Shown here is a 71-nucleotide RNA sequence, a member of the family "RAGATH-18 RNA". Actinobacteria, Firmicutes, Fusobacteria, Thermotogae (1 example). Rfam classes the family as a small RNA.
[Rfam]
RNA sequence: CCUUUGGAGAGUACAAGAACUUGUUAGUAGUAUUCAGUAAUGAUAUGAAAGCAUACUCGUUGAAAAAGGAA
Numbered sequence: 001c002c003u004u005u006g007g008a009g010a011g012u013a014c015a016a017g018a019a020c021u022u023g024u025u026a027g028u029a030g031u032a033u034u035c036a037g038u039a040a041u042g043a044u045a046u047g048a049a050a051g052c053a054u055a056c057u058c059g060u061u062g063a064a065a066a067a068g069g070a071a
Stems, first nucleotide, its partner, number of pairs: 001069005009058005022053003030046003035042002